[Rfam]
RNA: S15-Flavobacteria ribosomal protein leader
RNA sequence: UACCUUUGCCCAUUGAAUUGUAAUUAAUAUAAUUCACUACAUAAUAAUCAUUUAAAUAAUAUUGGCAUG
Numbered sequence: 001u002a003c004c005u006u007u008g009c010c011c012a013u014u015g016a017a018u019u020g021u022a023a024u025u026a027a028u029a030u031a032a033u034u035c036a037c038u039a040c041a042u043a044a045u046a047a048u049c050a051u052u053u054a055a056a057u058a059a060u061a062u063u064g065g066c067a068u069g
Stems, first nucleotide, its partner, number of pairs: 014036008